[Rfam]
RNA sequence: CAUUCGCGCCUGUAUCUUGCUGAACCGUUACCAAUUGUGAUCUUCAUUUCCGGUUGAGCAAAAUUUCAGGUGUGUGAGAAA
Numbered sequence: 001c002a003u004u005c006g007c008g009c010c011u012g013u014a015u016c017u018u019g020c021u022g023a024a025c026c027g028u029u030a031c032c033a034a035u036u037g038u039g040a041u042c043u044u045c046a047u048u049u050c051c052g053g054u055u056g057a058g059c060a061a062a063a064u065u066u067c068a069g070g071u072g073u074g075u076g077a078g079a080a081a
Stems, first nucleotide, its partner, number of pairs: 003078004007072006014064002017061002020058002023055001025053003
Shown here is an 81-nucleotide sequence from Drosophila willistoni, a member of the family "mir-87 microRNA precursor family". The source organism's lineage runs through Eukaryota, Protostomia, Diptera, Drosophila and Sophophora. The sequence is in the family's curated seed alignment.